Record summary
This 96-nucleotide sequence from Treponema vincentii belongs to the Rfam family "TD-2 RNA".
RNA sequence: AGCGGCACGGAUGCCGCUGGUUCCCUGCAGCAGCGAGAUUUGGGCUAUGCACAAAUCUCGUCGUUGAACAGUGUACACGGACGUACACUGUUCAAC
Dot-bracket structure: ((((((......))))))...............(((((((((.(.....).)))))))))..((((((((((((((......))))))))))))))
Numbered sequence: 001a002g003c004g005g006c007a008c009g010g011a012u013g014c015c016g017c018u019g020g021u022u023c024c025c026u027g028c029a030g031c032a033g034c035g036a037g038a039u040u041u042g043g044g045c046u047a048u049g050c051a052c053a054a055a056u057c058u059c060g061u062c063g064u065u066g067a068a069c070a071g072u073g074u075a076c077a078c079g080g081a082c083g084u085a086c087a088c089u090g091u092u093c094a095a096c
Stems, first nucleotide, its partner, number of pairs: 001018006034060009044050001063096014
The match comes from Rfam's covariance-model search (62 bits). It is annotated as a small RNA. For this family Rfam cites "Identification of 22 candidate structured RNAs in bacteria using the CMfinder comparative genomics pipeline" (Weinberg et al., Nucleic Acids Res, 2007). The base pairs follow the family's consensus structure, which is taken from published work.